[Rfam]
RNA sequence: UUUAACCGCCUCUAGGGUUCCAGUCUAAGCACCUCGCUUAGAUGAUCGGUCUGAGAGAGGCAAGCUGCUGAAAAGGCAUCUUUUGAUAAAAGUUGUCUGGUAGUUACACGGCGGGAUCAAAGCCCGGGAGAA
Numbered sequence: 001u002u003u004a005a006c007c008g009c010c011u012c013u014a015g016g017g018u019u020c021c022a023g024u025c026u027a028a029g030c031a032c033c034u035c036g037c038u039u040a041g042a043u044g045a046u047c048g049g050u051c052u053g054a055g056a057g058a059g060g061c062a063a064g065c066u067g068c069u070g071a072a073a074a075g076g077c078a079u080c081u082u083u084u085g086a087u088a089a090a091a092g093u094u095g096u097c098u099g100g101u102a103g104u105u106a107c108a109c110g111g112c113g114g115g116a117u118c119a120a121a122g123c124c125c126g127g128g129a130g131a132a
Stems, first nucleotide, its partner, number of pairs: 008061005015052002020049002022046001023043008063105008107127001109130001113125003

Shown here is a 132-nucleotide RNA from Leptolyngbya sp. FACHB-321, a member of the family "Guanidine-I riboswitch aptamer". The organism belongs to Leptolyngbya, within Bacteria. Gene Ontology term of the family: regulation of gene expression. This family represents a conserved RNA structure found upstream of the ykkC and yxkD genes in Bacillus subtilis and related genes in other bacteria. The function of this family is unclear although it has been suggested that it may function to switch on efflux pumps and detoxification systems in response to harmful environmental molecules.